[Rfam]
RNA sequence: GGCCUCCUGGUGCUUACCACGGGCAGUGUUUUUACACUGACUCUAUAGAAAAAGGAGGCAAACUAAGUCUUCCUCAGAUACACCUCAUCCCAGGCCUUGUGUCUUUGUCUGUAUUGUGAAUGGGGAAACACAG
Number, nucleotide and partner (000 for none) at each position: 001g000002g059003c058004c057005u056006c055007c054008u053009g000010g000011u000012g000013c000014u000015u000016a000017c000018c000019a000020c000021g042022g041023g000024c000025a000026g037027u036028g035029u034030u000031u000032u000033u000034a029035c028036a027037c026038u000039g000040a000041c022042u021043c000044u000045a000046u000047a000048g000049a000050a000051a000052a000053a008054g007055g006056a005057g004058g003059c002060a000061a000062a000063c000064u000065a000066a000067g000068u000069c000070u000071u000072c125073c124074u123075c122076a121077g000078a000079u000080a000081c000082a000083c000084c000085u000086c111087a110088u000089c000090c107091c000092a105093g103094g102095c101096c000097u000098u000099g000100u000101g095102u094103c093104u000105u092106u000107g090108u000109c000110u087111g086112u000113a000114u000115u000116g000117u000118g000119a000120a000121u076122g075123g074124g073125g072126a000127a000128a000129c000130a000131c000132a000133g000
RNA: Small nucleolar RNA SNORA51